[Rfam]
RNA sequence: AUUCGAUACGGCGAUGGAGCCCGCCCCUCAACCGCCUUUUUCAGAAGGCUGAUGGCCCCUGUCCCAUU
Numbered sequence: 001a002u003u004c005g006a007u008a009c010g011g012c013g014a015u016g017g018a019g020c021c022c023g024c025c026c027c028u029c030a031a032c033c034g035c036c037u038u039u040u041u042c043a044g045a046a047g048g049c050u051g052a053u054g055g056c057c058c059c060u061g062u063c064c065c066a067u068u
Stems, first nucleotide, its partner, number of pairs: 010025004016059002019056003034049004
The family of this 68-nucleotide RNA sequence from an Alicyclobacillaceae bacterium is "Fluoride riboswitch aptamer (crcB RNA motif)". A search with the family's covariance model found it, with a score of 47 bits. NCBI's taxonomy places the organism under Bacteria, Bacillati, Bacillota, Bacilli, Alicyclobacillaceae.